RNA: terC RNA
Organism: Altererythrobacter xiamenensis
RNA sequence: GGGGGUUACCGGGCCCCUCUGGCGAUAGCUCUUCGUGCAAUCGCGAUGUCGGAACAAAUG
Numbered sequence: 001g002g003g004g005g006u007u008a009c010c011g012g013g014c015c016c017c018u019c020u021g022g023c024g025a026u027a028g029c030u031c032u033u034c035g036u037g038c039a040a041u042c043g044c045g046a047u048g049u050c051g052g053a054a055c056a057a058a059u060g
Base pairs, nucleotide, nucleotide: 006054007053009052010051011050012049022044023043024042025041026040028038029037